[Rfam]
RNA: DUF805b RNA
RNA sequence: AGGGAGUCUGCCGAAAAUCCUUAACAGAGUAGGCG
Numbered sequence: 001a002g003g004g005a006g007u008c009u010g011c012c013g014a015a016a017a018u019c020c021u022u023a024a025c026a027g028a029g030u031a032g033g034c035g
Stems, first nucleotide, its partner, number of pairs: 002021004010034003